[Rfam]
A member of the RNA family "Plastid-ycf2 5UTR RNA" from Capsicum annuum, 75 nucleotides long. The family has 204 seed sequences and 3,521 matches in Rfam 15.1. On this family, see Richter et al., Plant Commun 2023: "Retrograde signaling in plants: A critical review focusing on the GUN pathway and beyond". From the family's description: Plastid ycf2 is a non-coding RNA (ncRNA) recognised in plastids. It was found in the prime untranslated region (5UTR) of ycf2 genes, it presents a tRNA-like motif which suggests it can be involved in mRNA maturation, particularly involved in defining the precise 5' end of the transcript. It scores 73 bits against the family's covariance model. The family's RNA type in Rfam is cis-regulatory element. Lineage of the source: Eukaryota > Spermatophyta > Gunneridae > Solanales > Capsicum.
RNA sequence: AUGCAUCUAGUAGGAAUUGAACCUAGGAAUUUUUCAAUUAUGAGUUGGGCGCUUUAACUAUUCACCCAUGGAUGU
Dot-bracket structure: ..((((((..((((.......))))..............(((.(.((((.(.......).)))).))))))))))
Numbered sequence: 001a002u003g004c005a006u007c008u009a010g011u012a013g014g015a016a017u018u019g020a021a022c023c024u025a026g027g028a029a030u031u032u033u034u035c036a037a038u039u040a041u042g043a044g045u046u047g048g049g050c051g052c053u054u055u056a057a058c059u060a061u062u063c064a065c066c067c068a069u070g071g072a073u074g075u
Stems, first nucleotide, its partner, number of pairs: 003075006011025004040069003044066001046064004051059001